Record summary: EcpR1: a 109-nucleotide RNA from Arminella tubonensis. The organism belongs to Arminella, within Bacteria. It is annotated as a small RNA. About the family: Perviously named SmelC291, SmrC10, or Sra33. According to its overproduction phenotype it was renamed Elongated Cell Phenotype RNA1. Induced by stress,EcpR1 negatively regulates cell cycle master regulatory genes dnaA and gcrA at post-transcriptional level by base pairing between its strongly conserved GC-rich loop and the target mRNAs. It's regulation is hfq-independent but requires RNase E to regulate dnaA.
RNA sequence: AUACCCCAUGAUGCUCAGGUCCGCCGCAUCUCCUGGGUCGUGGGGUCGGCCGGCUAGUAAGCAUAUCUACGCGGUUCCUCGUGCCGCUUGCAAACUAGUCGGCCCCCAA
Numbered sequence: 001a002u003a004c005c006c007c008a009u010g011a012u013g014c015u016c017a018g019g020u021c022c023g024c025c026g027c028a029u030c031u032c033c034u035g036g037g038u039c040g041u042g043g044g045g046u047c048g049g050c051c052g053g054c055u056a057g058u059a060a061g062c063a064u065a066u067c068u069a070c071g072c073g074g075u076u077c078c079u080c081g082u083g084c085c086g087c088u089u090g091c092a093a094a095c096u097a098g099u100c101g102g103c104c105c106c107c108a109a
Stems, first nucleotide, its partner, number of pairs: 003046008014037006048104011